[Rfam]
RNA sequence: GCACUUACUAUGAUGCUGAUACUGGAGUGCAUCUGAGGCUGUUGUAGAAGCACGUGGGUUGUUGGUUACAACACUGCCGAUGAUUAUAGCCCAGGAGCAGCUCACCUAAGUAGCCUGACACCCUAAAAUCUCUGACAGGUUCAUUGAACGUGAUCCUGUGAUCUGA
Numbered sequence: 001g002c003a004c005u006u007a008c009u010a011u012g013a014u015g016c017u018g019a020u021a022c023u024g025g026a027g028u029g030c031a032u033c034u035g036a037g038g039c040u041g042u043u044g045u046a047g048a049a050g051c052a053c054g055u056g057g058g059u060u061g062u063u064g065g066u067u068a069c070a071a072c073a074c075u076g077c078c079g080a081u082g083a084u085u086a087u088a089g090c091c092c093a094g095g096a097g098c099a100g101c102u103c104a105c106c107u108a109a110g111u112a113g114c115c116u117g118a119c120a121c122c123c124u125a126a127a128a129u130c131u132c133u134g135a136c137a138g139g140u141u142c143a144u145u146g147a148a149c150g151u152g153a154u155c156c157u158g159u160g161a162u163c164u165g166a
Stems, first nucleotide, its partner, number of pairs: 040073008049063004053058001
This 166-nucleotide RNA from Cervus elaphus belongs to the Rfam family "Small Cajal body-specific RNA 7". The match comes from Rfam's covariance-model search (173 bits). Rfam 15.1 lists 570 matches to the family in 531 species. Taxonomically the source falls in Cervus elaphus (Eukaryota, Teleostomi, Eutheria, Cervus). On this family, see Darzacq et al., EMBO J 2002: "Cajal body-specific small nuclear RNAs: a novel class of 2'-O-methylation and pseudouridylation guide RNAs". The base pairs follow the family's consensus structure.